[Rfam]
RNA: Group II catalytic intron D1-D4-3
Organism: Nitrococcus mobilis
RNA sequence: GAUCCCGCGAGGGAUGGUCUGAAGGAAGCCCGAGUGCAAACCUGCGAGCUGACGAACAGAAAUUUCAUAGAAGGCGUAGCCGCUGGGCGAGUCAGCACAAGAUGACGAAGCCCAACAGUACGAUGGUAGCGUAAAUGGGGCCGUUGUGCAGGGAAAGUUGUCGCU
Numbered sequence: 001g002a003u004c005c006c007g008c009g010a011g012g013g014a015u016g017g018u019c020u021g022a023a024g025g026a027a028g029c030c031c032g033a034g035u036g037c038a039a040a041c042c043u044g045c046g047a048g049c050u051g052a053c054g055a056a057c058a059g060a061a062a063u064u065u066c067a068u069a070g071a072a073g074g075c076g077u078a079g080c081c082g083c084u085g086g087g088c089g090a091g092u093c094a095g096c097a098c099a100a101g102a103u104g105a106c107g108a109a110g111c112c113c114a115a116c117a118g119u120a121c122g123a124u125g126g127u128a129g130c131g132u133a134a135a136u137g138g139g140g141c142c143g144u145u146g147u148g149c150a151g152g153g154a155a156a157g158u159u160g161u162c163g164c165u
Base pairs, nucleotide, nucleotide: 002015003014004013005012006011028165030163032161036158037157041152042151043150044149045148046147047145048144049143051141063140064139065138066137067136068135074132075131076130079127080126081125082124084122085113086112087111088110091106092105093104094103